This 234-nucleotide RNA sequence from Brasilonema sennae belongs to the Rfam family "HNH endonuclease-associated RNA and ORF (HEARO) RNA".
The family's consensus secondary structure is taken from published work.
On this family, see Weinberg et al., Nature 2009: "Exceptional structured noncoding RNAs revealed by bacterial metagenome analysis".
It is annotated as a non-coding RNA gene.
The source organism's lineage runs through Bacteria, Bacillati, Cyanophyceae, Scytonemataceae and Brasilonema sennae.

RNA sequence: GUCAACACCCACGGCCAGAAGCCGUGGGCUUCCAGCGACCAAGUCGUUGUAAGCCCUAGUUGACCCGACUAAGUACCCCGCGUACUACGUUAUCGGUAAGUGUUAAAGAACCUACUCCGGAAUACAAAGCCAGUUCCAGGAUACUAGAACGAAACGGUUAAACAGACGUAAAGGGUUAAACUCAGUGCCGCAAUAGAAAGUACCGACCGAUAACAUUGUCCAGGCUAACAUCAC
Number, nucleotide and partner (000 for none) at each position: 001g064002u063003c062004a061005a060006c059007a057008c000009c028010c027011a025012c024013g000014g000015c000016c021017a000018g000019a000020a000021g016022c000023c000024g012025u011026g000027g010028g009029c053030u052031u051032c000033c000034a000035g000036c000037g000038a000039c000040c000041a000042a000043g000044u000045c000046g000047u000048u000049g000050u000051a031052a030053g029054c000055c000056c000057u007058a000059g006060u005061u004062g003063a002064c001065c000066c000067g220068a219069c218070u000071a216072a086073g085074u084075a083076c082077c000078c000079c000080g000081c000082g076083u075084a074085c073086u072087a000088c000089g214090u213091u212092a211093u210094c209095g208096g207097u206098a000099a000100g000101u000102g000103u000104u000105a000106a000107a000108g000109a000110a000111c000112c147113u146114a000115c000116u140117c139118c000119g137120g136121a135122a134123u133124a000125c000126a000127a000128a226129g225130c224131c223132a000133g123134u122135u121136c120137c119138a000139g117140g116141a000142u000143a000144c000145u000146a113147g112148a000149a000150c196151g000152a194153a000154a000155c190156g189157g188158u187159u000160a000161a000162a186163c185164a000165g183166a182167c000168g181169u180170a000171a177172a000173g000174g000175g000176u000177u171178a000179a000180a169181c168182u166183c165184a000185g163186u162187g158188c157189c156190g155191c000192a000193a000194u152195a000196g150197a000198a000199a000200g000201u000202a000203c000204c000205g000206a097207c096208c095209g094210a093211u092212a091213a090214c089215a000216u071217u000218g069219u068220c067221c000222a000223g131224g130225c129226u128227a000228a000229c000230a000231u000232c000233a000234c000